[Rfam]
A member of the RNA family "Small nucleolar SNORD12/SNORD106" from Monodelphis domestica, 91 nucleotides long. By type it is a C/D-box small nucleolar RNA. The literature on the family includes a 2003 paper in Nucleic Acids Res by Vitali et al., "Identification of 13 novel human modification guide RNAs". Its Rfam clan is "SNORD12 clan". Gene Ontology terms of the family: RNA processing and nucleolus. The match comes from Rfam's covariance-model search (88 bits). The base pairs follow the family's consensus structure, which was predicted with RNAalifold.

RNA sequence: ACUGGUGCAAAUGAUGACUUGACUUUUUUCCCCAUCAGAUCGACCUUGCUGAUCUCUUUGAAUUUUUGCCAGUUUGAUUCUGAUGCACCGU
Number, nucleotide and partner (000 for none) at each position: 001a000002c000003u090004g089005g088006u087007g086008c085009a084010a000011a000012u000013g000014a000015u000016g000017a000018c000019u000020u000021g000022a000023c000024u000025u000026u000027u000028u000029u000030c000031c000032c000033c000034a000035u000036c000037a000038g000039a000040u000041c000042g000043a000044c000045c000046u000047u000048g000049c000050u000051g000052a000053u000054c000055u000056c000057u000058u000059u000060g000061a000062a000063u000064u000065u000066u000067u000068g000069c000070c000071a000072g000073u000074u000075u000076g000077a000078u000079u000080c000081u000082g000083a000084u009085g008086c007087a006088c005089c004090g003091u000